The family of this 266-nucleotide sequence from Aceticella autotrophica is "Bacterial large signal recognition particle RNA". It scores 202 bits against the family's covariance model. Clan: SRP clan. The organism belongs to Aceticella, within Bacteria. The family's RNA type in Rfam is non-coding RNA gene.
RNA sequence: CCGUACUAGACGGGGAGGUAGCGGUGCCCUGUAACCUGCAAUCCGCUAUAGCAGGGUUGAAGUCCCGAGCUGAGGUCUGUUUAUUGUAAGGCUGGCAUAAAUAAGUAGUUAUGAUGCUUGAGUCCUACGCAACGAAAAUUUGUGAAUCCCGCCAGGUCUGGAAGGAAGCAACGGUAAGCAAACACUUUCGUGUGCCGUAGGGGUGCUUAAGUUGAGCCAACUGUUUAUGUAACGCUUAUGGUAGCAUAUCGAAGUCGGGUGUACGG
Numbered sequence: 001c002c003g004u005a006c007u008a009g010a011c012g013g014g015g016a017g018g019u020a021g022c023g024g025u026g027c028c029c030u031g032u033a034a035c036c037u038g039c040a041a042u043c044c045g046c047u048a049u050a051g052c053a054g055g056g057u058u059g060a061a062g063u064c065c066c067g068a069g070c071u072g073a074g075g076u077c078u079g080u081u082u083a084u085u086g087u088a089a090g091g092c093u094g095g096c097a098u099a100a101a102u103a104a105g106u107a108g109u110u111a112u113g114a115u116g117c118u119u120g121a122g123u124c125c126u127a128c129g130c131a132a133c134g135a136a137a138a139u140u141u142g143u144g145a146a147u148c149c150c151g152c153c154a155g156g157u158c159u160g161g162a163a164g165g166a167a168g169c170a171a172c173g174g175u176a177a178g179c180a181a182a183c184a185c186u187u188u189c190g191u192g193u194g195c196c197g198u199a200g201g202g203g204u205g206c207u208u209a210a211g212u213u214g215a216g217c218c219a220a221c222u223g224u225u226u227a228u229g230u231a232a233c234g235c236u237u238a239u240g241g242u243a244g245c246a247u248a249u250c251g252a253a254g255u256c257g258g259g260u261g262u263a264c265g266g
Base pairs, nucleotide, nucleotide: 001266002265003264004263005262006261009058010057011056012030013029014028015027017025019023035055036054037053038052039051064259065258066257067256068255070254071253074250075249076248078246081244082243083242084241085240086239087238088237089236090235095230097228098227099226100225101224102223105221106220108217109216116212117211118210119209120208121207122206123205124201125200126199127198128197129196130192131191133190134189135188136187137186139182140181141180142179143178149174150173151172157166158165159164